[Rfam]
RNA sequence: UUGCGCCUGCGGCGGACCCGGCACGGAUUUAUCACAGCGCUUCGCAGGCAGCCUGUCCGUGUACGGCCCGGUACAUCCCGGAAUUUUCCGGGCUUUAAUGUCUUCU
Numbered sequence: 001u002u003g004c005g006c007c008u009g010c011g012g013c014g015g016a017c018c019c020g021g022c023a024c025g026g027a028u029u030u031a032u033c034a035c036a037g038c039g040c041u042u043c044g045c046a047g048g049c050a051g052c053c054u055g056u057c058c059g060u061g062u063a064c065g066g067c068c069c070g071g072u073a074c075a076u077c078c079c080g081g082a083a084u085u086u087u088c089c090g091g092g093c094u095u096u097a098a099u100g101u102c103u104u105c106u
Stems, first nucleotide, its partner, number of pairs: 005049007013070003017066002021062008037053001039052003077092006
This 106-nucleotide RNA sequence belongs to the Rfam family "RT-5 RNA". Rfam's curators put it in the seed alignment.